[Rfam]
The family of this 180-nucleotide sequence from Nothobranchius furzeri is "Small nucleolar RNA SNORA81". NCBI's taxonomy places the organism under Eukaryota, Actinopteri, Clupeocephala, Cyprinodontiformes, Nothobranchius. It is annotated as an H/ACA-box small nucleolar RNA. A search with the family's covariance model found it, with a score of 66 bits. Its family is annotated with nucleolus and RNA processing in the Gene Ontology. The family's consensus secondary structure was predicted with WAR. For this family Rfam cites "A novel experimental approach for systematic identification of box H/ACA snoRNAs from eukaryotes" (Gu et al., Nucleic Acids Res, 2005).
RNA sequence: CCCUUCUGCAGUUCAAGAACUGUGCUGUAGUUGUGUGGUCCAGUUGUUCUGUUCCAUGCAAUAAUGCUAGCAGAGUACAAUGCAGACGGAGAUUAAAACGCACUGAACCGAAAAUGAGAUGUGGUCGAACCUCUUUCUUAAUGUUCGCUGGCUGCAUUCUCGAGGUGACGUGCUACACCU
Numbered sequence: 001c002c003c004u005u006c007u008g009c010a011g012u013u014c015a016a017g018a019a020c021u022g023u024g025c026u027g028u029a030g031u032u033g034u035g036u037g038g039u040c041c042a043g044u045u046g047u048u049c050u051g052u053u054c055c056a057u058g059c060a061a062u063a064a065u066g067c068u069a070g071c072a073g074a075g076u077a078c079a080a081u082g083c084a085g086a087c088g089g090a091g092a093u094u095a096a097a098a099c100g101c102a103c104u105g106a107a108c109c110g111a112a113a114a115u116g117a118g119a120u121g122u123g124g125u126c127g128a129a130c131c132u133c134u135u136u137c138u139u140a141a142u143g144u145u146c147g148c149u150g151g152c153u154g155c156a157u158u159c160u161c162g163a164g165g166u167g168a169c170g171u172g173c174u175a176c177a178c179c180u
Base pairs, nucleotide, nucleotide: 020075021074023072024071025070026069027068030065031064032063033062036056037055038054041051042050043049100173101172102171103170107166122151124149126147127146128145129144